[Rfam]
RNA sequence: CACACCCUAGUCUGUAAGUCGCCUUGGAUAAAGGCGUCUGCUAAAUAAUAAUAA
Numbered sequence: 001c002a003c004a005c006c007c008u009a010g011u012c013u014g015u016a017a018g019u020c021g022c023c024u025u026g027g028a029u030a031a032a033g034g035c036g037u038c039u040g041c042u043a044a045a046u047a048a049u050a051a052u053a054a
Stems, first nucleotide, its partner, number of pairs: 013043001014041003020036006
Dot-bracket structure: ............((((...((((((.....))))))..))).)...........

This 54-nucleotide RNA sequence from Acipenser ruthenus belongs to the Rfam family "UnaL2 LINE 3' element". It is annotated as a cis-regulatory element. The source organism's lineage runs through Eukaryota, Opisthokonta, Eumetazoa, Acipenseroidei and Acipenser. A search with the family's covariance model found it, with a score of 58 bits. Rfam describes the family as follows. The eel long interspersed element (LINE) UnaL2 and its partner short interspersed element (SINE) share a conserved 3' tail containing a stem-loop that is critical for their retrotransposition. Rfam 15.1 lists 493,311 matches to the family in 99 species. Gene Ontology term of the family: transposition, RNA-mediated.